[Rfam]
A member of the RNA family "MIR164 microRNA precursor family" from Carex littledalei, 65 nucleotides long.
On this family, see Reinhart et al., Genes Dev 2002: "MicroRNAs in plants".
Its family is annotated with miRNA-mediated post-transcriptional gene silencing and RISC complex in the Gene Ontology.
Rfam 15.1 lists 201 matches to the family in 125 species.

RNA sequence: UGGAGAAGGGGAGCACGUGCAGAGCAGGAAAGAGAGAGCCUCUGCACGUGCCCUGCUUCUCCAAC
Numbered sequence: 001u002g003g004a005g006a007a008g009g010g011g012a013g014c015a016c017g018u019g020c021a022g023a024g025c026a027g028g029a030a031a032g033a034g035a036g037a038g039c040c041u042c043u044g045c046a047c048g049u050g051c052c053c054u055g056c057u058u059c060u061c062c063a064a065c
Base pairs, nucleotide, nucleotide: 001063002062003061004060005059006058007057008056010054011053013051014050015049016048017047018046019045020044021043022042023041024040